[Rfam]
RNA sequence: AAGAUACCCGCAGGAGAGUGCUUCUUAAGGAAGCCGCCGAAGGCGCAUAGCCCGUAAACGCUCAGGCAAAAGGACUGUGGGUGAUGG
Numbered sequence: 001a002a003g004a005u006a007c008c009c010g011c012a013g014g015a016g017a018g019u020g021c022u023u024c025u026u027a028a029g030g031a032a033g034c035c036g037c038c039g040a041a042g043g044c045g046c047a048u049a050g051c052c053c054g055u056a057a058a059c060g061c062u063c064a065g066g067c068a069a070a071a072g073g074a075c076u077g078u079g080g081g082u083g084a085u086g087g
Stems, first nucleotide, its partner, number of pairs: 006082008020034004036067003039063002043061003
Description: Rfam assigns this 87-nucleotide sequence from Thiothrix eikelboomii to the family "Glycine riboswitch aptamer".